[Rfam]
RNA sequence: GGACAUAAAUGAAUCGUUUUCCGUAUAUGCUUGGGAAUUGGCCCAAGUGUUUCUACCAGGCAACCGUAAUUGCCGGACUACGGAGGGAAAGUGUACCUAG
Numbered sequence: 001g002g003a004c005a006u007a008a009a010u011g012a013a014u015c016g017u018u019u020u021c022c023g024u025a026u027a028u029g030c031u032u033g034g035g036a037a038u039u040g041g042c043c044c045a046a047g048u049g050u051u052u053c054u055a056c057c058a059g060g061c062a063a064c065c066g067u068a069a070u071u072g073c074c075g076g077a078c079u080a081c082g083g084a085g086g087g088a089a090a091g092u093g094u095a096c097c098u099a100g
Stems, first nucleotide, its partner, number of pairs: 018086008029048007057076001059074005
Shown here is a 100-nucleotide RNA sequence from Desulforamulus reducens, a member of the family "Purine riboswitch aptamer". Its family is annotated with purine nucleobase biosynthetic process in the Gene Ontology. It is one of the family's seed sequences.